[Rfam]
RNA sequence: UGGUCCAUCGGGACCCUGGAUACCUGCUUUUAUUAUU
Numbered sequence: 001u002g003g004u005c006c007a008u009c010g011g012g013a014c015c016c017u018g019g020a021u022a023c024c025u026g027c028u029u030u031u032a033u034u035a036u037u
Base pairs, nucleotide, nucleotide: 003014004013005012006011017026018025019024
This 37-nucleotide RNA sequence from Galemys pyrenaicus belongs to the Rfam family "XIST RNA A repeat". For this family Rfam cites "The Xist RNA A-repeat comprises a novel AUCG tetraloop fold and a platform for multimerization" (Duszczyk et al., RNA, 2011). The organism belongs to Galemys, within Eukaryota.